[Rfam]
Annotation
The record is a 145-nucleotide RNA sequence from Gossypium arboreum, which matches "MIR7502 microRNA precursor family" in Rfam. Rfam links the family to the GO terms miRNA-mediated post-transcriptional gene silencing and RISC complex.
RNA sequence: UGUUAAAAAUUUUAUCCGUUUGUACUAUUAGAAAGUGACGUGACCGACGGAAUAAUCAAAUAAUGACACGUAGCGUGUCAUGUGUACUUUAUGCUAACGUACAAAGAUCAGUUUUUAACAAUAAAAAUGGACGAAAACUUCAGUA
Numbered sequence: 001u002g003u004u005a006a007a008a009a010u011u012u013u014a015u016c017c018g019u020u021u022g023u024a025c026u027a028u029u030a031g032a033a034a035g036u037g038a039c040g041u042g043a044c045c046g047a048c049g050g051a052a053u054a055a056u057c058a059a060a061u062a063a064u065g066a067c068a069c070g071u072a073g074c075g076u077g078u079c080a081u082g083u084g085u086a087c088u089u090u091a092u093g094c095u096a097a098c099g100u101a102c103a104a105a106g107a108u109c110a111g112u113u114u115u116u117a118a119c120a121a122u123a124a125a126a127a128u129g130g131a132c133g134a135a136a137a138c139u140u141c142a143g144u145a
Base pairs, nucleotide, nucleotide: 002144003143004142006140007139010136011135012134013133015131016130018128019127020126021125023123024122026120028118029117030116031115032114033113